This 33-nucleotide sequence belongs to the Rfam family "L31-Coriobacteria ribosomal protein leader".
RNA sequence: GUCUUGGUCGGAAACCAAGACAAUAAAAAGGAG
Number, nucleotide and partner (000 for none) at each position: 001g021002u020003c019004u018005u017006g016007g015008u014009c000010g000011g000012a000013a000014a008015c007016c006017a005018a004019g003020a002021c001022a000023a000024u000025a000026a000027a000028a000029a000030g000031g000032a000033g000
The sequence is in the family's curated seed alignment.